RNA: mir-8/mir-141/mir-200 microRNA precursor family
RNA sequence: UGUUUCAUCUUACUUCGACAGUAUUAGUUCGUAUAACUAAUUUGCUAAUACUGUCAGGUAAAGAUGGCUAU
Numbered sequence: 001u002g003u004u005u006c007a008u009c010u011u012a013c014u015u016c017g018a019c020a021g022u023a024u025u026a027g028u029u030c031g032u033a034u035a036a037c038u039a040a041u042u043u044g045c046u047a048a049u050a051c052u053g054u055c056a057g058g059u060a061a062a063g064a065u066g067g068c069u070a071u
Stems, first nucleotide, its partner, number of pairs: 005067005010061005017055012